[Rfam]
RNA sequence: GCGUGAGGACGACCUCCCCGAAUUGGACAACAGCCGGGACGACCCGG
Numbered sequence: 001g002c003g004u005g006a007g008g009a010c011g012a013c014c015u016c017c018c019c020g021a022a023u024u025g026g027a028c029a030a031c032a033g034c035c036g037g038g039a040c041g042a043c044c045c046g047g
Stems, first nucleotide, its partner, number of pairs: 001018001005016004034047005
This 47-nucleotide RNA sequence from Martelella mediterranea belongs to the Rfam family "Guanidine-II riboswitch aptamer (mini-ykkC)". The literature on the family includes a 2007 paper in Nucleic Acids Res by Weinberg et al., "Identification of 22 candidate structured RNAs in bacteria using the CMfinder comparative genomics pipeline". The match comes from Rfam's covariance-model search (35 bits). Rfam links the family to the GO term regulation of gene expression.